[Rfam]
RNA sequence: UUUAUCGCAUAACUCCGAGCUUGUUGACCUAAGUUUGCAAAAAUAAGGCGGCAAUGCCAGCGAUCUGCGGAUUGCUCAGGGAUAACGUUGGAAACGGCUUGUCCUCUCGUGUUUUAAGAAAGGUGUCUAAUGCAACAAUUU
Numbered sequence: 001u002u003u004a005u006c007g008c009a010u011a012a013c014u015c016c017g018a019g020c021u022u023g024u025u026g027a028c029c030u031a032a033g034u035u036u037g038c039a040a041a042a043a044u045a046a047g048g049c050g051g052c053a054a055u056g057c058c059a060g061c062g063a064u065c066u067g068c069g070g071a072u073u074g075c076u077c078a079g080g081g082a083u084a085a086c087g088u089u090g091g092a093a094a095c096g097g098c099u100u101g102u103c104c105u106c107u108c109g110u111g112u113u114u115u116a117a118g119a120a121a122g123g124u125g126u127c128u129a130a131u132g133c134a135a136c137a138a139u140u141u
Stems, first nucleotide, its partner, number of pairs: 003135001006132001012126002015123002019057002022054001025051001028048002033044004059076005079105006087098004106118002